RNA sequence: AAUUAACUGUGAUACACGUGCUUCUAUUAUUGCGCUGACCGAACAUCUAUUUAUAGGGGUUCAAAAGAACAAGUGGAUGACAUGCCUUUUCAUUUGGUAGUCAGAAACUUGUUUGGUGAACACCCACCUGAACAUUUUAUGGUUCAGCCAACAUAGAUCUUAACACGGUAUCUACGGUAUUCUA
Numbered sequence: 001a002a003u004u005a006a007c008u009g010u011g012a013u014a015c016a017c018g019u020g021c022u023u024c025u026a027u028u029a030u031u032g033c034g035c036u037g038a039c040c041g042a043a044c045a046u047c048u049a050u051u052u053a054u055a056g057g058g059g060u061u062c063a064a065a066a067g068a069a070c071a072a073g074u075g076g077a078u079g080a081c082a083u084g085c086c087u088u089u090u091c092a093u094u095u096g097g098u099a100g101u102c103a104g105a106a107a108c109u110u111g112u113u114u115g116g117u118g119a120a121c122a123c124c125c126a127c128c129u130g131a132a133c134a135u136u137u138u139a140u141g142g143u144u145c146a147g148c149c150a151a152c153a154u155a156g157a158u159c160u161u162a163a164c165a166c167g168g169u170a171u172c173u174a175c176g177g178u179a180u181u182c183u184a
Base pairs, nucleotide, nucleotide: 006178007177008176009175010174011173012171013170014169015168017167018166019165031151034148036146037145038144039142040141056125057124058123060120061119062118063117067114068113069112070111071110072109073108074107080101081100085097086096

Notes:
This 184-nucleotide RNA sequence from Atopococcus tabaci belongs to the Rfam family "6S / SsrS RNA". The match comes from Rfam's covariance-model search (67 bits).